[Rfam]
RNA sequence: ACUUGUUCCGCUGUAGCAGCACGUAAAUAUUGGUGUAGUAAAGAUAACGCCAAUAUUAUUGUGCUGCUUAAGUGUGACAGGG
Numbered sequence: 001a002c003u004u005g006u007u008c009c010g011c012u013g014u015a016g017c018a019g020c021a022c023g024u025a026a027a028u029a030u031u032g033g034u035g036u037a038g039u040a041a042a043g044a045u046a047a048c049g050c051c052a053a054u055a056u057u058a059u060u061g062u063g064c065u066g067c068u069u070a071a072g073u074g075u076g077a078c079a080g081g082g
Stems, first nucleotide, its partner, number of pairs: 002081005015068009026057010
Dot-bracket structure: .(((((........(((((((((..((((((((((............))))))))))..)))))))))........))))).
RNA: mir-15 microRNA precursor family